[Rfam]
RNA: FMN riboswitch aptamer (RFN element)
RNA sequence: AGUUUCCUUCAGGGCAGGGUGAAAUUCCCGAUCGGCGGUGUUGGAUGUAAUACUCCAGAGUCCGCGAGCCAUAUGGCUGAUCCGGUAAAAAGCCGGAACCGACAGUAAAGUCUGGAUGAAAGAAGGAUGAU
Numbered sequence: 001a002g003u004u005u006c007c008u009u010c011a012g013g014g015c016a017g018g019g020u021g022a023a024a025u026u027c028c029c030g031a032u033c034g035g036c037g038g039u040g041u042u043g044g045a046u047g048u049a050a051u052a053c054u055c056c057a058g059a060g061u062c063c064g065c066g067a068g069c070c071a072u073a074u075g076g077c078u079g080a081u082c083c084g085g086u087a088a089a090a091a092g093c094c095g096g097a098a099c100c101g102a103c104a105g106u107a108a109a110g111u112c113u114g115g116a117u118g119a120a121a122g123a124a125g126g127a128u129g130a131u
Stems, first nucleotide, its partner, number of pairs: 003129001005127006017029003031111002033101002035065004060099002068077003081097005103114003